[Rfam]
This 173-nucleotide RNA sequence from Peribacillus asahii belongs to the Rfam family "glmS glucosamine-6-phosphate activated ribozyme aptamer". Rfam links the family to the GO terms regulation of gene expression and catalytic activity. A search with the family's covariance model found it, with a score of 121 bits. Rfam classes the family as a riboswitch.

Nucleotides: 173
Base pairs, nucleotide, nucleotide: 020050021049022048023047024046025045026044027043029042059090060089061088062087063086068079069078070077071076091110092109093108094107095106096105117163118162119161120160121159122158123157131148132147133146134145135144136143137142
Number, partner (000 for none) and nucleotide at each position: 001000g002000u003000a004000g005000u006000u007000u008000u009000a010000c011000a012000a013000g014000c015000g016000c017000c018000u019000g020050a021049a022048c023047u024046a025045a026044g027043c028000c029042u030000g031000g032000a033000c034000g035000a036000a037000a038000c039000g040000a041000u042029g043027g044026c045025u046024u047023a048022g049021u050020u051000g052000a053000c054000g055000a056000g057000g058000g059090g060089g061088a062087g063086g064000u065000u066000u067000a068079u069078c070077g071076a072000a073000c074000a075000a076071u077070c078069g079068g080000c081000g082000g083000a084000u085000g086063c087062c088061u089060c090059c091110c092109g093108g094107u095106u096105g097000a098000c099000u100000g101000u102000g103000c104000a105096c106095a107094a108093c109092c110091g111000u112000c113000g114000u115000a116000a117163u118162u119161u120160u121159c122158a123157c124000c125000u126000u127000a128000a129000a130000a131148c132147a133146g134145c135144g136143g137142g138000g139000c140000a141000a142137c143136u144135u145134g146133c147132u148131g149000c150000a151000c152000a153000a154000a155000g156000g157123g158122u159121g160120g161119a162118a163117a164000a165000u166000g167000c168000a169000c170000a171000a172000a173000c